[Rfam]
RNA sequence: CUGGUUGAGCUAAACGGGAGAGACUUCGUAAAGAAGCGCCGAAGGAGCAAUAAUUGUUUUUUUACCAAAAUAAUUAGAAACUCUCAGGCAAAAGGACCGCUUAGGGACAGUCCUCUGGAGAGUUACUAAAGUAACACCGAAGGAGAUUAAUCUCUCAGGUAAACAAGACAGAGUG
Numbered sequence: 001c002u003g004g005u006u007g008a009g010c011u012a013a014a015c016g017g018g019a020g021a022g023a024c025u026u027c028g029u030a031a032a033g034a035a036g037c038g039c040c041g042a043a044g045g046a047g048c049a050a051u052a053a054u055u056g057u058u059u060u061u062u063u064a065c066c067a068a069a070a071u072a073a074u075u076a077g078a079a080a081c082u083c084u085c086a087g088g089c090a091a092a093a094g095g096a097c098c099g100c101u102u103a104g105g106g107a108c109a110g111u112c113c114u115c116u117g118g119a120g121a122g123u124u125a126c127u128a129a130a131g132u133a134a135c136a137c138c139g140a141a142g143g144a145g146a147u148u149a150a151u152c153u154c155u156c157a158g159g160u161a162a163a164c165a166a167g168a169c170a171g172a173g174u175g
Base pairs, nucleotide, nucleotide: 001110002109003108010104011103012102013101015099016098017097022037024036025035026034027033038089039088040087044085045083046082047081051076052075053074054073055072056071057070058069059068060067113173114172115171116170117169122135123134124133125132126131136160137159138158142156144153145152
glycine-GGAnGA riboswitch aptamer: a 175-nucleotide RNA from Clostridium sp. 'deep sea'. A reference for the family is Weinberg et al. (2017), "Bioinformatic analysis of riboswitch structures uncovers variant classes with altered ligand specificity", Proc Natl Acad Sci U S A. The match comes from Rfam's covariance-model search (111 bits). Its Rfam clan is "Glycine riboswitch clan".